[Rfam]
The family of this 87-nucleotide RNA from Triticum turgidum is "MIR1120/MIR1122 microRNA precursor family".
Taxonomically the source falls in Triticum turgidum (Eukaryota, Spermatophyta, commelinids, Triticodae).

Nucleotides: 087
Stems, first nucleotide, its partner, number of pairs: 003085003007081001009079003013075005019069023
Number, partner (000 for none) and nucleotide at each position: 001000u002000u003085a004084c005083u006000c007081c008000c009079u010078c011077u012000g013075u014074c015073c016072c017071a018000u019069a020068a021067u022066a023065u024064a025063a026062g027061a028060a029059c030058g031057u032056u033055u034054u035053u036052a037051a038050u039049a040048u041047u042000u043000g044000u045000c046000u047041a048040g049039u050038a051037u052036u053035a054034a055033a056032a057031a058030c059029g060028u061027u062026c063025u064024u065023a066022u067021a068020u069019u070000a071017u072016g073015g074014g075013a076000c077011g078010g079009a080000u081007g082000a083005a084004g085003u086000a087000u